[Rfam]
RNA sequence: CCAACGGCUAGCUCGACGGAGCGAAAACCGGUUUCCUGACCGGUCCGCCGUUGGUGUUUCAAAUUCAGG
Numbered sequence: 001c002c003a004a005c006g007g008c009u010a011g012c013u014c015g016a017c018g019g020a021g022c023g024a025a026a027a028c029c030g031g032u033u034u035c036c037u038g039a040c041c042g043g044u045c046c047g048c049c050g051u052u053g054g055u056g057u058u059u060c061a062a063a064u065u066c067a068g069g
Stems, first nucleotide, its partner, number of pairs: 001054008011022004027044005035069005
int-alpA RNA: a 69-nucleotide RNA sequence from Rosistilla oblonga.
Acidobacteria (1 example), Planctomycetes (1 example), Proteobacteria.
The source organism's lineage runs through Bacteria, Pseudomonadati, Planctomycetia, Pirellulaceae and Rosistilla.
The family's RNA type in Rfam is small RNA.